[Rfam]
Nucleotides: 041
Stems, first nucleotide, its partner, number of pairs: 001041008009032005
Number, partner (000 for none) and nucleotide at each position: 001041u002040c003039u004038g005037a006036g007035a008034c009032g010031c011030a012029g013028c014000g015000u016000g017000g018000a019000u020000a021000c022000a023000g024000a025000g026000a027000a028013g029012c030011u031010g032009u033000g034008g035007u036006u037005u038004c039003a040002g041001a

The record is a 41-nucleotide sequence from Gasterosteus aculeatus, which matches "MAT2A 3'UTR stem loop D" in Rfam. NCBI's taxonomy places the organism under Eukaryota, Actinopterygii, Teleostei, Euteleosteomorpha, Gasterosteus. It is annotated as a cis-regulatory element. Rfam 15.1 lists 422 matches to the family in 262 species. A reference for the family is Parker et al. (2011), "New families of human regulatory RNA structures identified by comparative analysis of vertebrate genomes", Genome Res.